This 103-nucleotide RNA sequence from Bacillus licheniformis belongs to the Rfam family "Guanidine-I riboswitch aptamer". The family has 100 seed sequences and 1,509 matches in Rfam 15.1. Lineage of the source: Bacteria > Bacillati > Bacillota > Bacillaceae > Bacillus licheniformis. The base pairs follow the family's consensus structure. Rfam's curators put it in the seed alignment. This family represents a conserved RNA structure found upstream of the ykkC and yxkD genes in Bacillus subtilis and related genes in other bacteria. The function of this family is unclear although it has been suggested that it may function to switch on efflux pumps and detoxification systems in response to harmful environmental molecules. Rfam links the family to the GO term regulation of gene expression.
[Rfam]
RNA sequence: GUUAAAGUUUUCUAGGGUUCCGCACAUUCGUAUGUGGCCUGGUCCGAGAGAAAACACAUAUGAUUUGUUCAUAUGCACACGGAGGGAUAAAAGCCCGGGAGUA
Numbered sequence: 001g002u003u004a005a006a007g008u009u010u011u012c013u014a015g016g017g018u019u020c021c022g023c024a025c026a027u028u029c030g031u032a033u034g035u036g037g038c039c040u041g042g043u044c045c046g047a048g049a050g051a052a053a054a055c056a057c058a059u060a061u062g063a064u065u066u067g068u069u070c071a072u073a074u075g076c077a078c079a080c081g082g083a084g085g086g087a088u089a090a091a092a093g094c095c096c097g098g099g100a101g102u103a
Stems, first nucleotide, its partner, number of pairs: 007055006015045002020042002022039001023036005057075007078098001080101001084096003